RNA sequence: UAAUUAUCAAGAGUGAACGAGAGAUCUGGCUCAACGACUUCACGGCAACCUGGCUUUUAGCUAAGGUGCCCCUACCAGCAAAGUACAAUGUACUUUGGAUGAUAAACU
Numbered sequence: 001u002a003a004u005u006a007u008c009a010a011g012a013g014u015g016a017a018c019g020a021g022a023g024a025u026c027u028g029g030c031u032c033a034a035c036g037a038c039u040u041c042a043c044g045g046c047a048a049c050c051u052g053g054c055u056u057u058u059a060g061c062u063a064a065g066g067u068g069c070c071c072c073u074a075c076c077a078g079c080a081a082a083g084u085a086c087a088a089u090g091u092a093c094u095u096u097g098g099a100u101g102a103u104a105a106a107c108u
Stems, first nucleotide, its partner, number of pairs: 004105005013043005021032003026078004044070004049066002051063004074100001079097006
Rfam assigns this 108-nucleotide RNA from Halolactibacillus alkaliphilus to the family "SAM riboswitch aptamer (S box leader)". Rfam describes the family as follows. The SAM riboswitch is found upstream of a number of genes which code for proteins involved in methionine or cysteine biosynthesis in Gram-positive bacteria. It scores 73 bits against the family's covariance model. The organism belongs to Halolactibacillus, within Bacteria.